The record is a 79-nucleotide RNA from Morella rubra, which matches "Small nucleolar RNA R12" in Rfam. About the family: snoR12 is a C/D box small nucleolar RNA, which acts as a methylation guide for 25S ribosomal RNA in plants. snoR12 has been alternatively named snoZ44 in Arabidopsis and snoZ131 in rice. The base pairs follow the family's consensus structure, which was predicted with PFOLD.
RNA sequence: UGUUGGAUGAUGAGAAGAAGCGGACAGAUUCCCACUUAUAUUGAAUAUAUGAUAUCAUAACUAGCUACUUCUGACAACA
Numbered sequence: 001u002g003u004u005g006g007a008u009g010a011u012g013a014g015a016a017g018a019a020g021c022g023g024a025c026a027g028a029u030u031c032c033c034a035c036u037u038a039u040a041u042u043g044a045a046u047a048u049a050u051g052a053u054a055u056c057a058u059a060a061c062u063a064g065c066u067a068c069u070u071c072u073g074a075c076a077a078c079a
Stems, first nucleotide, its partner, number of pairs: 001079005